[Rfam]
RNA: Y RNA
RNA sequence: GUCUGGUCCAAGUGCAGUGGAAUUUAUAAUUAAUUGAACACAGUCAGUUAUAGAUUUCUUUGUUCUUUCUCCACUCCCAUUGCUUCACUUGAUUUGUCUUAC
Number, nucleotide and partner (000 for none) at each position: 001g098002u000003c096004u000005g094006g093007u092008c091009c000010a090011a089012g000013u000014g086015c000016a081017g080018u079019g078020g077021a000022a000023u000024u000025u000026a000027u000028a064029a063030u062031u000032a060033a059034u000035u000036g000037a000038a000039c000040a000041c000042a000043g000044u000045c000046a000047g000048u000049u000050a000051u000052a000053g000054a000055u000056u000057u000058c000059u033060u032061u000062g030063u029064u028065c000066u000067u000068u000069c000070u000071c000072c000073a000074c000075u000076c000077c020078c019079a018080u017081u016082g000083c000084u000085u000086c014087a000088c000089u011090u010091g008092a007093u006094u005095u000096g003097u000098c001099u000100u000101a000102c000